[Rfam]
RNA: Saccharopolyspora sRNA 350
Organism: Saccharopolyspora gloriosae
RNA sequence: UUGACUGUGAACUUCCAGGUCCCGUCCUGGUCGACCAGCAGGCCGGAGCCGGCGUGGUCGCCGUCGGCGAGCAGGCCGAGCACCGCGUCGUCGCCGUACUCGCCGGCGGUCAGCUUGUGCGCUUUCCCGUGCGCCAGCAGCAGGAUUCGGUCCACGGCCGAUCCGGCUUCGGCCAGCACUUCGCCGGGCCCGUACUCGCGUUGCACGAACCGGUCGGCUAGCGCGCCGAGCACGUCGGCGUCGUCGAAUCCCCGCAACGCCGGCAGUUCCUGGAGCUCCUGCGGCACCACCCGCACUUCCCGGCCGGUGCUGACGAACGUGACGCGCCCGUCGCCGAGGGUGUAGGUGAGCCGCCGGUUCACCCGGUAGGUGCCCGAGCUCGCCUCCACCCACGGCAGGGUCCGUUGCAGCCAGCGGGAUGUGAUGCCCUGCAUCUGCGGCGGGGUCUUGGUCGUCGUCGACAGGUUCCGCGCCGCCGCGGUGCCCAGGCUCAGUGCGGGGCGAGCGCCGG
Numbered sequence: 001u002u003g004a005c006u007g008u009g010a011a012c013u014u015c016c017a018g019g020u021c022c023c024g025u026c027c028u029g030g031u032c033g034a035c036c037a038g039c040a041g042g043c044c045g046g047a048g049c050c051g052g053c054g055u056g057g058u059c060g061c062c063g064u065c066g067g068c069g070a071g072c073a074g075g076c077c078g079a080g081c082a083c084c085g086c087g088u089c090g091u092c093g094c095c096g097u098a099c100u101c102g103c104c105g106g107c108g109g110u111c112a113g114c115u116u117g118u119g120c121g122c123u124u125u126c127c128c129g130u131g132c133g134c135c136a137g138c139a140g141c142a143g144g145a146u147u148c149g150g151u152c153c154a155c156g157g158c159c160g161a162u163c164c165g166g167c168u169u170c171g172g173c174c175a176g177c178a179c180u181u182c183g184c185c186g187g188g189c190c191c192g193u194a195c196u197c198g199c200g201u202u203g204c205a206c207g208a209a210c211c212g213g214u215c216g217g218c219u220a221g222c223g224c225g226c227c228g229a230g231c232a233c234g235u236c237g238g239c240g241u242c243g244u245c246g247a248a249u250c251c252c253c254g255c256a257a258c259g260c261c262g263g264c265a266g267u268u269c270c271u272g273g274a275g276c277u278c279c280u281g282c283g284g285c286a287c288c289a290c291c292c293g294c295a296c297u298u299c300c301c302g303g304c305c306g307g308u309g310c311u312g313a314c315g316a317a318c319g320u321g322a323c324g325c326g327c328c329c330g331u332c333g334c335c336g337a338g339g340g341u342g343u344a345g346g347u348g349a350g351c352c353g354c355c356g357g358u359u360c361a362c363c364c365g366g367u368a369g370g371u372g373c374c375c376g377a378g379c380u381c382g383c384c385u386c387c388a389c390c391c392a393c394g395g396c397a398g399g400g401u402c403c404g405u406u407g408c409a410g411c412c413a414g415c416g417g418g419a420u421g422u423g424a425u426g427c428c429c430u431g432c433a434u435c436u437g438c439g440g441c442g443g444g445g446u447c448u449u450g451g452u453c454g455u456c457g458u459c460g461a462c463a464g465g466u467u468c469c470g471c472g473c474c475g476c477c478g479c480g481g482u483g484c485c486c487a488g489g490c491u492c493a494g495u496g497c498g499g500g501g502c503g504a505g506c507g508c509c510g511g
Stems, first nucleotide, its partner, number of pairs: 007389003011385001014382001018328002022324001025322002028319002031316002036312005045305002049303004054233002058229003062225003066110001068108001075103001077102004082097002085094002117222002122217002126213002129210002131206001133204002136201001140197001143196002150191001155186004160177001165174003234296002240290002243287002249283001251281001254278001256277001258275001262269001329342004352378001354376001356374002360372004391431002394428004400422002403418001405416001407415001437476004442471001444469002447465004452460001477510002482503001484501003488497001